[Rfam]
RNA: Small nucleolar RNA SNORA26
RNA sequence: GUAGCCUCUUAAGGCAGAUAGUGCUUUAAGAGGCUAACCCAGAAAGAAGGGUAUAAUAAUUUUCCAUUGAACCCAAAGCUGAGAUUUAAACCUAUUCUUUGGAUCCUGUCUGGAGUUACAACU
Numbered sequence: 001g002u003a004g005c006c007u008c009u010u011a012a013g014g015c016a017g018a019u020a021g022u023g024c025u026u027u028a029a030g031a032g033g034c035u036a037a038c039c040c041a042g043a044a045a046g047a048a049g050g051g052u053a054u055a056a057u058a059a060u061u062u063u064c065c066a067u068u069g070a071a072c073c074c075a076a077a078g079c080u081g082a083g084a085u086u087u088a089a090a091c092c093u094a095u096u097c098u099u100u101g102g103a104u105c106c107u108g109u110c111u112g113g114a115g116u117u118a119c120a121a122c123u
Base pairs, nucleotide, nucleotide: 002053003052005050006049007048009046010045014038017035019030062115063114064113065112066111073102074101075100076099077098078097082093083092086090